[Rfam]
RNA sequence: AAAAAGACAAACUCUGGUUUUCGUGUACAACGUAUGACCAUCCGUCUUAUUUGUAAAAAUUAUAAAAAAAAUUAAAAAGAUAAGUCACGCAUAAAGUAUUAAUCAUGUUUUAUCAUCUAACAACAAUGAAAAUACUAAUUAUAAAAAAAUUUCAUAUAAGACGGACAGUUAAACGUUGGCACGGAAACCCAGGGUUUGACUUUUU
Dot-bracket structure: .........................(.((((.(.((((..((((((((((.........................................................................................................))))))))))..)))).).)))))..........................
Numbered sequence: 001a002a003a004a005a006g007a008c009a010a011a012c013u014c015u016g017g018u019u020u021u022c023g024u025g026u027a028c029a030a031c032g033u034a035u036g037a038c039c040a041u042c043c044g045u046c047u048u049a050u051u052u053g054u055a056a057a058a059a060u061u062a063u064a065a066a067a068a069a070a071a072u073u074a075a076a077a078a079g080a081u082a083a084g085u086c087a088c089g090c091a092u093a094a095a096g097u098a099u100u101a102a103u104c105a106u107g108u109u110u111u112a113u114c115a116u117c118u119a120a121c122a123a124c125a126a127u128g129a130a131a132a133u134a135c136u137a138a139u140u141a142u143a144a145a146a147a148a149a150u151u152u153c154a155u156a157u158a159a160g161a162c163g164g165a166c167a168g169u170u171a172a173a174c175g176u177u178g179g180c181a182c183g184g185a186a187a188c189c190c191a192g193g194g195u196u197u198g199a200c201u202u203u204u205u
Stems, first nucleotide, its partner, number of pairs: 026179001028178004033173001035171004041165010
Rfam assigns this 205-nucleotide sequence from Oryza nivara to the family "MIR812 microRNA precursor family".
A search with the family's covariance model found it, with a score of 112 bits.
The family's consensus secondary structure was predicted with RNAalifold.